About this RNA: Rfam assigns this 102-nucleotide RNA from Terrilactibacillus tamarindi to the family "Purine riboswitch aptamer". From the family's description: Riboswitches are metabolite binding domains within certain messenger RNAs that serve as precision sensors for their corresponding targets. The base pairs follow the family's consensus structure, which is taken from published work. Its family is annotated with purine nucleobase biosynthetic process in the Gene Ontology. Taxonomically the source falls in Terrilactibacillus (Bacteria, Bacillati, Bacilli, Bacillaceae).
RNA sequence: UAGAUUCAACUAAAUAUUCCCCAUAUAAUCUUAGAAAUACUGUCUAGGAGUCUCUACAAAGCAACCGUAAAUUGCUUUACUAUGACGCCGUCCUAUCACCUA
Dot-bracket structure: ..................(..((((...(((((((.......)))))))........(((((((.......)))))))..))))..)...............